[Rfam]
RNA sequence: GUAACUAUGACUCAACCACCUUGAGAGGGUCACGAGAGGGACGUCAAAGUCGAGCCCUAGUGGCGGCGGCCUCCGGGCGGCCGCUGCGACACUGUCAAAUUGCGGGGAGUUCCUAAAGCACCGGCUACCCCCGCCUCCCCGAAAGGGCGAGGCGCGCACCAGGGUAAUGACCUCGGGCAUGGUAACAACGCCGGUGAUGUGACAAUGGAUAAUCCGCAGCCAAGCGCUACCGCCCCUCGGGGCCAGGCGUGCUGUCCAACGACUAGAUGGCAGUGGGUCCGCCCUCCCGGGCGGGCUUAAGAUAUAGUCUGCUCCCCGGCCCAACGGUCGGG
Number, nucleotide and partner (000 for none) at each position: 001g000002u000003a000004a000005c000006u000007a000008u000009g000010a000011c000012u000013c000014a000015a000016c000017c000018a000019c000020c000021u000022u000023g000024a000025g000026a000027g000028g000029g000030u000031c000032a000033c000034g000035a000036g000037a000038g000039g000040g000041a000042c000043g000044u000045c000046a000047a000048a000049g000050u000051c000052g000053a000054g000055c000056c000057c000058u000059a000060g000061u000062g000063g000064c000065g000066g000067c000068g000069g000070c000071c000072u000073c000074c000075g000076g000077g000078c000079g000080g000081c000082c000083g000084c000085u000086g000087c000088g000089a000090c275091a274092c273093u272094g271095u000096c269097a268098a000099a000100u000101u218102g217103c216104g215105g214106g213107g000108a000109g000110u000111u209112c208113c207114u000115a000116a000117a000118g000119c000120a000121c000122c000123g000124g000125c000126u000127a000128c000129c000130c000131c000132c000133g000134c000135c000136u000137c000138c000139c000140c000141g000142a000143a000144a000145g000146g000147g000148c000149g000150a000151g000152g000153c000154g000155c000156g000157c000158a000159c000160c000161a000162g000163g000164g000165u000166a000167a000168u000169g000170a000171c000172c000173u000174c000175g000176g000177g000178c000179a000180u000181g000182g000183u000184a000185a000186c000187a000188a000189c000190g000191c000192c000193g000194g000195u000196g000197a000198u000199g000200u000201g000202a000203c000204a000205a000206u000207g113208g112209a111210u000211a000212a000213u106214c105215c104216g103217c102218a101219g255220c254221c000222a000223a000224g250225c249226g248227c247228u000229a000230c000231c000232g243233c242234c241235c240236c000237u000238c000239g000240g235241g234242g233243c232244c000245a000246g000247g227248c226249g225250u224251g000252c000253u000254g220255u219256c000257c000258a000259a310260c000261g309262a308263c307264u306265a305266g000267a000268u097269g096270g000271c094272a093273g092274u091275g090276g000277g296278u295279c294280c293281g292282c291283c290284c289285u000286c000287c000288c000289g284290g283291g282292c281293g280294g279295g278296c277297u000298u000299a000300a000301g000302a000303u000304a000305u265306a264307g263308u262309c261310u259311g000312c000313u000314c000315c000316c000317c330318g329319g328320c327321c326322c000323a000324a000325c000326g321327g320328u319329c318330g317331g000332g000